[Rfam]
RNA sequence: AACAAUUUGUCCCGCGUCCCGCGGCGUUUUAAAAAAGUCAAAGAUUCUUUUUUAAAAUGCCGCGGGACGCGGGACAAAUUGUUAA
Numbered sequence: 001a002a003c004a005a006u007u008u009g010u011c012c013c014g015c016g017u018c019c020c021g022c023g024g025c026g027u028u029u030u031a032a033a034a035a036a037g038u039c040a041a042a043g044a045u046u047c048u049u050u051u052u053u054a055a056a057a058u059g060c061c062g063c064g065g066g067a068c069g070c071g072g073g074a075c076a077a078a079u080u081g082u083u084a085a
Stems, first nucleotide, its partner, number of pairs: 001083035
Shown here is an 85-nucleotide RNA sequence from Pipistrellus kuhlii, a member of the family "mir-9261 microRNA precursor family". Rfam 15.1 lists 196 matches to the family in 3 species. Pairs were carried over by alignment from the consensus structure, which was predicted with RNAalifold. Its family is annotated with RISC complex and miRNA-mediated post-transcriptional gene silencing in the Gene Ontology. NCBI's taxonomy places the organism under Eukaryota, Bilateria, Sarcopterygii, Tetrapoda, Pipistrellus.